The record is a 129-nucleotide sequence from Myotis lucifugus, which matches "Small nucleolar RNA SNORA11" in Rfam. The organism belongs to Myotis, within Eukaryota.

RNA sequence: GGGGUGUGCUCAGAGCAGAGUGUCUGAAGAAUGGCUCCUCUGUUUACAACACACCCAACAGGAACUUGGGCUUACUCCUCACAGGUGGCAGGGUACAUUGGCCUCCCUGUGACAUCAUGCCCUACACAU
Numbered sequence: 001g002g003g004g005u006g007u008g009c010u011c012a013g014a015g016c017a018g019a020g021u022g023u024c025u026g027a028a029g030a031a032u033g034g035c036u037c038c039u040c041u042g043u044u045u046a047c048a049a050c051a052c053a054c055c056c057a058a059c060a061g062g063a064a065c066u067u068g069g070g071c072u073u074a075c076u077c078c079u080c081a082c083a084g085g086u087g088g089c090a091g092g093g094u095a096c097a098u099u100g101g102c103c104u105c106c107c108u109g110u111g112a113c114a115u116c117a118u119g120c121c122c123u124a125c126a127c128a129u
Stems, first nucleotide, its partner, number of pairs: 002056007013045008022035003069122002072119001076114001082111002085104001087102001089100003
Notes:
U107 (SNORA11) is a member of the H/ACA class of snoRNAs that guide the sites of modification of uridines to pseudouridines. For this family Rfam cites "A novel experimental approach for systematic identification of box H/ACA snoRNAs from eukaryotes" (Gu et al., Nucleic Acids Res, 2005).